Rfam assigns this 128-nucleotide RNA sequence from Arsenophonus sp. ENCA to the family "RtT RNA".
[Rfam]
RNA sequence: ACAUAGCACUGUGAGUACAGGAUGAGAAGCUGUGUAGGUUCGAGCCGAGCGAAGCGAGACAGCGUUGUGCGAAGCACAACGACCCGAAGGGCGAGACCGUAGGCCGAGUUAUCCAGUGCGACCCACCA
Numbered sequence: 001a002c003a004u005a006g007c008a009c010u011g012u013g014a015g016u017a018c019a020g021g022a023u024g025a026g027a028a029g030c031u032g033u034g035u036a037g038g039u040u041c042g043a044g045c046c047g048a049g050c051g052a053a054g055c056g057a058g059a060c061a062g063c064g065u066u067g068u069g070c071g072a073a074g075c076a077c078a079a080c081g082a083c084c085c086g087a088a089g090g091g092c093g094a095g096a097c098c099g100u101a102g103g104c105c106g107a108g109u110u111a112u113c114c115a116g117u118g119c120g121a122c123c124c125a126c127c128a
Base pairs, nucleotide, nucleotide: 015119016118017117018116020114021113023111033093034092039088040087041086042085046056047055063081064080065079066078067077068076

A reference for the family is Bosl and Kersten (1991), "A novel RNA product of the tyrT operon of Escherichia coli", Nucleic Acids Res. It is annotated as a cis-regulatory element.